[Rfam]
RNA sequence: CAUCUCAAACGAAACUGGUUUUCACAAUGAUUUGCCAGAUUUAUUUGAUUCUGAGAUCAUUGUGAAAGCUGAUUUUGUUAC
Numbered sequence: 001c002a003u004c005u006c007a008a009a010c011g012a013a014a015c016u017g018g019u020u021u022u023c024a025c026a027a028u029g030a031u032u033u034g035c036c037a038g039a040u041u042u043a044u045u046u047g048a049u050u051c052u053g054a055g056a057u058c059a060u061u062g063u064g065a066a067a068g069c070u071g072a073u074u075u076u077g078u079u080a081c
Base pairs, nucleotide, nucleotide: 009078010077011076012075013074014073016071017070018069019068020067021066022065023064024063025062028059029058030057031056032055033054
RNA: bantam microRNA precursor family